[Rfam]
RNA sequence: GCGGAGACACACGUUUCCGUUCACUCCUCACACCACACCCCGCCUGGACAGUUAUUGGUUCGGGCGGCU
Numbered sequence: 001g002c003g004g005a006g007a008c009a010c011a012c013g014u015u016u017c018c019g020u021u022c023a024c025u026c027c028u029c030a031c032a033c034c035a036c037a038c039c040c041c042g043c044c045u046g047g048a049c050a051g052u053u054a055u056u057g058g059u060u061c062g063g064g065c066g067g068c069u
Stems, first nucleotide, its partner, number of pairs: 001020008041066009
Description:
Shown here is a 69-nucleotide sequence from Thermosynechococcus vestitus, a member of the family "Cyanobacterial functional RNA 1". Rfam's curators put it in the seed alignment. For this family Rfam cites "Identification of cyanobacterial non-coding RNAs by comparative genome analysis" (Axmann et al., Genome Biol, 2005).